[Rfam]
RNA sequence: CACACCGCAAAGGCCGCGAGGCUCACCCCGAACAGGAUGUCGUCGCCUUUCGAGGGGACACAUCCGCAUUCGUGAGCGGGCUAAGGUCUGAGUAUUCCAGUCUCCCUCGCUCGACUCUAGACGGGUCGUGUCUGUGAAGACACAGCGGCGCACCAGAAAUCCUCCCCAAGCCCCGCCCUCACGGGUGGAGGUCGGUGCUCGCAAAGCGGGUAUCCGGCCACCCCAAGAACCGUCCUGCAGUGGUCGGGGAGGGUUCGCAGCAAGGAAUUGAAAGCGUCGCGGAGACCGGGCGCGCUGCCUUGCUCGCUCUGCUUCAACGCUAUCGCGGUCCAUUCGCGUUACUGCUCUCGUGGCACGUACGCGCCAAACUGCCUUUGUUGUGUUUGGCUCAACGGUGGAGUGUUGAUCCUAGUAGCGCAAGCGCUGAUCACAUGUCCACCGCGAGACCUACGAGGUCGUUUGGCAGCAGAGAAGAAUCCUCGAGGCACGCGUCCUUGAGUGCACUUCGCGGCUCGCUAAUGGCACUUCGUGUGCCAGGUGAAACUCGAUUCAGACUACUCUUGCGCUGUG
Numbered sequence: 001c002a003c004a005c006c007g008c009a010a011a012g013g014c015c016g017c018g019a020g021g022c023u024c025a026c027c028c029c030g031a032a033c034a035g036g037a038u039g040u041c042g043u044c045g046c047c048u049u050u051c052g053a054g055g056g057g058a059c060a061c062a063u064c065c066g067c068a069u070u071c072g073u074g075a076g077c078g079g080g081c082u083a084a085g086g087u088c089u090g091a092g093u094a095u096u097c098c099a100g101u102c103u104c105c106c107u108c109g110c111u112c113g114a115c116u117c118u119a120g121a122c123g124g125g126u127c128g129u130g131u132c133u134g135u136g137a138a139g140a141c142a143c144a145g146c147g148g149c150g151c152a153c154c155a156g157a158a159a160u161c162c163u164c165c166c167c168a169a170g171c172c173c174c175g176c177c178c179u180c181a182c183g184g185g186u187g188g189a190g191g192u193c194g195g196u197g198c199u200c201g202c203a204a205a206g207c208g209g210g211u212a213u214c215c216g217g218c219c220a221c222c223c224c225a226a227g228a229a230c231c232g233u234c235c236u237g238c239a240g241u242g243g244u245c246g247g248g249g250a251g252g253g254u255u256c257g258c259a260g261c262a263a264g265g266a267a268u269u270g271a272a273a274g275c276g277u278c279g280c281g282g283a284g285a286c287c288g289g290g291c292g293c294g295c296u297g298c299c300u301u302g303c304u305c306g307c308u309c310u311g312c313u314u315c316a317a318c319g320c321u322a323u324c325g326c327g328g329u330c331c332a333u334u335c336g337c338g339u340u341a342c343u344g345c346u347c348u349c350g351u352g353g354c355a356c357g358u359a360c361g362c363g364c365c366a367a368a369c370u371g372c373c374u375u376u377g378u379u380g381u382g383u384u385u386g387g388c389u390c391a392a393c394g395g396u397g398g399a400g401u402g403u404u405g406a407u408c409c410u411a412g413u414a415g416c417g418c419a420a421g422c423g424c425u426g427a428u429c430a431c432a433u434g435u436c437c438a439c440c441g442c443g444a445g446a447c448c449u450a451c452g453a454g455g456u457c458g459u460u461u462g463g464c465a466g467c468a469g470a471g472a473a474g475a476a477u478c479c480u481c482g483a484g485g486c487a488c489g490c491g492u493c494c495u496u497g498a499g500u501g502c503a504c505u506u507c508g509c510g511g512c513u514c515g516c517u518a519a520u521g522g523c524a525c526u527u528c529g530u531g532u533g534c535c536a537g538g539u540g541a542a543a544c545u546c547g548a549u550u551c552a553g554a555c556u557a558c559u560c561u562u563g564c565g566c567u568g569u570g
Stems, first nucleotide, its partner, number of pairs: 001570004008563003013512007021077005035065006088553005095284004113127005128143006145280007163266003513541005

Shown here is a 570-nucleotide RNA sequence from Dichomitus squalens, a member of the family "Nuclear RNase P". The match comes from Rfam's covariance-model search (56 bits). Rfam's curators write: Ribonuclease P (RNase P) is a ubiquitous endoribonuclease, found in archaea, bacteria and eukarya as well as chloroplasts and mitochondria.